[Rfam]
A member of the RNA family "Listeria sRNA rli38" from Sporolactobacillus laevolacticus, 148 nucleotides long. Rfam classes the family as a small RNA. On this family, see Toledo-Arana et al., Nature 2009: "The Listeria transcriptional landscape from saprophytism to virulence". Lineage of the source: Bacteria > Bacilli > Sporolactobacillaceae > Sporolactobacillus > Sporolactobacillus laevolacticus.

RNA sequence: AAAGAGUGGUAAAAGGCUAACACAAAUCGAAUUGAGCAAGCCUAUUUGAUAGUGUUUAUUGUGCCUAACAAACGGUAAAACUGCUUAAAAUUAAAUAGUUCCCUGCCAACACCCCUGCCAGAAUUGAUGAUCUGGCAGGGGUGUUUUU
Numbered sequence: 001a002a003a004g005a006g007u008g009g010u011a012a013a014a015g016g017c018u019a020a021c022a023c024a025a026a027u028c029g030a031a032u033u034g035a036g037c038a039a040g041c042c043u044a045u046u047u048g049a050u051a052g053u054g055u056u057u058a059u060u061g062u063g064c065c066u067a068a069c070a071a072a073c074g075g076u077a078a079a080a081c082u083g084c085u086u087a088a089a090a091u092u093a094a095a096u097a098g099u100u101c102c103c104u105g106c107c108a109a110c111a112c113c114c115c116u117g118c119c120a121g122a123a124u125u126g127a128u129g130a131u132c133u134g135g136c137a138g139g140g141g142u143g144u145u146u147u148u
Stems, first nucleotide, its partner, number of pairs: 008103002011100001046071003050067003054064002057061001074091001109144014
Dot-bracket structure: .......((.(..................................(((.(((.((.(...).))))).)))..(................)........).)).....((((((((((((((........))))))))))))))....